[Rfam]
RNA sequence: CAACUACAUAAGCUGAUGGGCGGUUGACACUCCCUAAGAAAGGGGGUGUAUAUAAUGGUGACAUAUGAAGCAAUGAAUACGCUAUUACAAUUCGGUACAUUGAUCGUUACAAUGUUUAUCGCAUUUGUGGCAAUUGUCGCACUAGUCACCAAUAAAAAGAAGUAACCGCCCGUCCUCCGACCAAGAGUAGGUGGUUACUUCUUUUUUAACAUCAACUUGAUUUGGUCAGCCGCUCUUCAUGCGGCAUGUAGUUGCUUUGACCGGGUGUUGUAGCACUCGGU
Numbered sequence: 001c002a003a004c005u006a007c008a009u010a011a012g013c014u015g016a017u018g019g020g021c022g023g024u025u026g027a028c029a030c031u032c033c034c035u036a037a038g039a040a041a042g043g044g045g046g047u048g049u050a051u052a053u054a055a056u057g058g059u060g061a062c063a064u065a066u067g068a069a070g071c072a073a074u075g076a077a078u079a080c081g082c083u084a085u086u087a088c089a090a091u092u093c094g095g096u097a098c099a100u101u102g103a104u105c106g107u108u109a110c111a112a113u114g115u116u117u118a119u120c121g122c123a124u125u126u127g128u129g130g131c132a133a134u135u136g137u138c139g140c141a142c143u144a145g146u147c148a149c150c151a152a153u154a155a156a157a158a159g160a161a162g163u164a165a166c167c168g169c170c171c172g173u174c175c176u177c178c179g180a181c182c183a184a185g186a187g188u189a190g191g192u193g194g195u196u197a198c199u200u201c202u203u204u205u206u207u208a209a210c211a212u213c214a215a216c217u218u219g220a221u222u223u224g225g226u227c228a229g230c231c232g233c234u235c236u237u238c239a240u241g242c243g244g245c246a247u248g249u250a251g252u253u254g255c256u257u258u259g260a261c262c263g264g265g266u267g268u269u270g271u272a273g274c275a276c277u278c279g280g281u
Base pairs, nucleotide, nucleotide: 001254002253003252004251005250007248008247009246013229014228015174016173017172018171019170020169021168022167027049028048029047031046032045033044034043035042057119060116061115062114063113070085072083095110096109097108230244231243232242233241260281261280262279263278264277265276266275267274268273
The family of this 281-nucleotide RNA sequence from Halalkalibacter wakoensis is "BsrG". About the family: bsrE, bsrG and bsrH pair through intermolecular interactions with antisense sRNAs. They form type I toxin/antitoxin system that includes an mRNA encoding for a short, toxic peptide (bsrE, bsrG and bsrH) and an antitoxin that is comprised of an antisense RNA. bsrG encodes a 39-amino-acid toxin, and the 180 nucleotide antisense sRNA called SR4 acts as the antitoxin (they overlap by 123 nucleotides). SR4 interaction with the 3'UTR of bsrG RNA promotes bsrG degradation and inhibits its translation. BsrG interferes with cell envelope biosynthesis, causes membrane invaginations and delocalisation of the cell wall synthesis and initiates autolysis. bsrE RNA encodes 30 amino-acid toxin peptide. Its antitoxin gene, SR5 overlaps by 112 nucleotides at the 3' end of bsrE. SR5 also overlaps bsrG from nucleotide 163 to 52 (Rfam overlap check). The antitoxin SR5 promotes bsrE degradation but unlike SR4 it does not directly inhibits toxin mRNA translation. For this family Rfam cites "Identification of regulatory RNAs in Bacillus subtilis" (Irnov et al., Nucleic Acids Res, 2010). Pairs were carried over by alignment from the consensus structure, which was predicted with WAR. The match comes from Rfam's covariance-model search (58 bits). The organism belongs to Halalkalibacter wakoensis, within Bacteria.